[Rfam]
RNA sequence: UGGAAGAAUGUAGAUAAGGGAAGUCGGCAAAUUGGAUCCGUAACUUCGGGAGAAGGAUUGGCUCUAAGGGUUGGGUGCUUUAAGAACCAUGGCCUUAGCGGCCUGAGCAAUCGGGCUGCUUCCAGGCUUGGAGCUCUUGGGCACGCUUAACAACCAGCUUAGAACUGGUACGGACCAAGGGAAUCUGACUGUCUAAUUAAAACAUAGCAUUGCGAUUGCCAUAAAGUGGUAUUGACGCAAUGUGAUUUCUGCCCAGUGCUCUGAAUGUCAAGUUGAAUAAAUUCAACCAAGCGCGGGUAAACCGCGGGUAUUACUAUGAGAGCUUUGUGAUAUAGUCCAAGUUUCUAGAACUGCUAAUUAGUGACGCGCAUGAAUGGAUUAACGAGAUUCCCACUGUCCCUAUCUACUAUCCAGCGAAACCACAACCAAGGGAACGGGCUUGGCAAA
Number, nucleotide and partner (000 for none) at each position: 001u413002g412003g411004a410005a000006g000007a000008a000009u000010g407011u406012a405013g404014a403015u402016a401017a000018g399019g398020g397021a000022a000023g000024u000025c000026g000027g000028c000029a000030a000031a000032u000033u000034g000035g059036a058037u057038c056039c055040g000041u000042a000043a000044c049045u000046u000047c000048g000049g044050g000051a000052g000053a000054a000055g039056g038057a037058u036059u035060g166061g165062c000063u163064c162065u161066a160067a159068g158069g155070g154071u153072u152073g151074g000075g144076u143077g142078c141079u140080u139081u000082a137083a000084g000085a129086a128087c000088c126089a000090u124091g123092g000093c000094c000095u000096u000097a120098g119099c118100g117101g116102c115103c114104u113105g112106a111107g000108c000109a000110a000111u106112c105113g104114g103115g102116c101117u100118g099119c098120u097121u000122c000123c091124a090125g000126g088127c000128u086129u085130g000131g000132a000133g000134c000135u000136c000137u082138u000139g080140g079141g078142c077143a076144c075145g000146c000147u000148u000149a000150a000151c073152a072153a071154c070155c069156a000157g000158c068159u067160u066161a065162g064163a063164a000165c061166u060167g171168g000169u000170a000171c167172g000173g000174a000175c000176c000177a000178a000179g392180g391181g390182a389183a388184u387185c386186u384187g383188a000189c000190u204191g203192u202193c000194u000195a000196a000197u000198u000199a000200a000201a000202a192203c191204a190205u000206a000207g243208c242209a241210u240211u239212g238213c237214g236215a000216u000217u000218g230219c229220c228221a227222u000223a000224a000225a000226g000227u221228g220229g219230u218231a000232u000233u000234g000235a000236c214237g213238c212239a211240a210241u209242g208243u207244g000245a000246u000247u378248u377249c376250u000251g305252c304253c000254c000255a000256g302257u301258g298259c297260u296261c295262u000263g294264a000265a000266u293267g292268u291269c000270a000271a000272g000273u286274u285275g284276a283277a282278u000279a000280a000281a000282u277283u276284c275285a274286a273287c000288c000289a000290a000291g268292c267293g266294c263295g261296g260297g259298u258299a000300a000301a257302c256303c000304g252305c251306g324307g323308g000309u321310a000311u319312u000313a000314c000315u000316a000317u000318g000319a311320g000321a309322g000323c307324u306325u329326u000327g000328u000329g325330a000331u000332a000333u000334a000335g000336u000337c000338c000339a000340a000341g000342u000343u000344u000345c000346u000347a000348g365349a000350a000351c363352u000353g000354c000355u000356a000357a000358u000359u000360a000361g000362u000363g351364a000365c348366g000367c000368g000369c000370a000371u000372g000373a000374a000375u000376g249377g248378a247379u000380u000381a000382a000383c187384g186385a000386g185387a184388u183389u182390c181391c180392c179393a000394c000395u000396g000397u020398c019399c018400c000401u016402a015403u014404c013405u012406a011407c010408u000409a000410u004411c003412c002413a001414g000415c000416g000417a000418a000419a000420c000421c000422a000423c000424a000425a000426c443427c442428a441429a440430g439431g000432g000433a000434a000435c000436g000437g000438g000439c430440u429441u428442g427443g426444c000445a000446a000447a000
The record is a 447-nucleotide part of an RNA, which matches "Eukaryotic large subunit ribosomal RNA" in Rfam. The base pairs follow the family's consensus structure, which is taken from published work. Rfam's curators put it in the seed alignment.